[Rfam]
RNA sequence: AAAAAACGUUCGGGCUUCCAUCUCUUUCCCAGCCUACAUCUCAACCUGGGCUGGCAAGAAAUGGCAGUCUACACGUUUUUC
Numbered sequence: 001a002a003a004a005a006a007c008g009u010u011c012g013g014g015c016u017u018c019c020a021u022c023u024c025u026u027u028c029c030c031a032g033c034c035u036a037c038a039u040c041u042c043a044a045c046c047u048g049g050g051c052u053g054g055c056a057a058g059a060a061a062u063g064g065c066a067g068u069c070u071a072c073a074c075g076u077u078u079u080u081c
Stems, first nucleotide, its partner, number of pairs: 002080008012070005018064004023059004029054008
mir-74 microRNA precursor family: an 81-nucleotide sequence from Caenorhabditis elegans. Its Rfam clan is "mir-73 clan". The base pairs follow the family's consensus structure, which was predicted with RNAalifold. The literature on the family includes a 2001 paper in Science by Lau et al., "An abundant class of tiny RNAs with probable regulatory roles in Caenorhabditis elegans".